RNA sequence: ACGCAUCCUCUGAUAGACCUUGAGCAAUUCUCCUGCUGCUCCUGGGUUUGCACUGUGAUGCAAAAGGAACUUCCUUGUGCUUUCUGCCUGCCUGAUCACGUGGCAGCUCAGACUGAAUUGGGGAACACAUGC
Numbered sequence: 001a002c003g004c005a006u007c008c009u010c011u012g013a014u015a016g017a018c019c020u021u022g023a024g025c026a027a028u029u030c031u032c033c034u035g036c037u038g039c040u041c042c043u044g045g046g047u048u049u050g051c052a053c054u055g056u057g058a059u060g061c062a063a064a065a066g067g068a069a070c071u072u073c074c075u076u077g078u079g080c081u082u083u084c085u086g087c088c089u090g091c092c093u094g095a096u097c098a099c100g101u102g103g104c105a106g107c108u109c110a111g112a113c114u115g116a117a118u119u120g121g122g123g124a125a126c127a128c129a130u131g132c
Base pairs, nucleotide, nucleotide: 003061004060005059006058007057011052012051014050015049016048017047018046019045022041023040024039025038026037028035072124073123074122075121076120077119080115083112084111085110086109088106089105090104091103092102
A member of the RNA family "Small nucleolar RNA SNORA31" from Chelonia mydas, 132 nucleotides long. The literature on the family includes a 2001 paper in EMBO J by Huttenhofer et al., "RNomics: an experimental approach that identifies 201 candidates for novel, small, non-messenger RNAs in mouse". Rfam's curators write: ACA31 (SNORA31) belongs to the H/ACA class of snoRNAs which are thought to guide the sites of modification of uridines to pseudouridines. ACA31 is predicted to guide the pseudouridylation of U3713 in 28S rRNA and U218 in 18S rRNA. This family includes the mouse homologue snoMBI-161. It scores 82 bits against the family's covariance model. The family's consensus secondary structure was predicted with RNAalifold.